[Rfam]
RNA sequence: AGCUCAGUGAUUGCAGCCGUUUUCAUUGGCAAUAUACGCUAUGCUGACUGUUUGACAAAUAAGAAUAUGAGAGCU
Numbered sequence: 001a002g003c004u005c006a007g008u009g010a011u012u013g014c015a016g017c018c019g020u021u022u023u024c025a026u027u028g029g030c031a032a033u034a035u036a037c038g039c040u041a042u043g044c045u046g047a048c049u050g051u052u053u054g055a056c057a058a059a060u061a062a063g064a065a066u067a068u069g070a071g072a073g074c075u
Stems, first nucleotide, its partner, number of pairs: 001075005